[Rfam]
RNA: Aar sRNA
RNA sequence: AUUAACAUCUAUUAACAGUAAUUAACAUGAAUACCUAUGAACUUGGUCAGGUUUUUAAAUAAUAUAGCGAUGUAGAUUAGCAAACACUAAUCUCAUGACAUUUCUCCUUUCAACCGAAACUGUUUUAAACAGAUUCGUUGUUCAACGCAAUGAUCACCCCAAUCAUUGCGUUUUUUUUGCAUCUCAUAAUAUUA
Number, nucleotide and partner (000 for none) at each position: 001a000002u000003u000004a000005a000006c000007a000008u000009c000010u000011a000012u000013u000014a052015a000016c050017a000018g000019u049020a000021a047022u046023u045024a000025a000026c039027a038028u037029g000030a000031a000032u000033a000034c000035c000036u000037a028038u027039g026040a000041a000042c000043u000044u000045g023046g022047u021048c000049a019050g016051g000052u014053u000054u000055u000056u000057a000058a000059a000060u000061a000062a000063u000064a000065u194066a193067g192068c000069g000070a000071u188072g187073u186074a184075g183076a182077u181078u097079a096080g094081c000082a000083a091084a000085c000086a000087c000088u000089a000090a000091u083092c000093u000094c080095a000096u079097g078098a000099c000100a000101u000102u000103u000104c000105u000106c000107c000108u000109u000110u000111c000112a000113a000114c000115c137116g136117a135118a134119a000120c132121u131122g130123u129124u000125u000126u000127a000128a000129a123130c122131a121132g120133a000134u118135u117136c116137g115138u000139u000140g000141u000142u000143c000144a000145a171146c170147g169148c168149a167150a166151u165152g164153a163154u162155c000156a000157c000158c000159c000160c000161a000162a154163u153164c152165a151166u150167u149168g148169c147170g146171u145172u000173u000174u000175u000176u000177u000178u000179g000180c000181a077182u076183c075184u074185c000186a073187u072188a071189a000190u000191a000192u067193u066194a065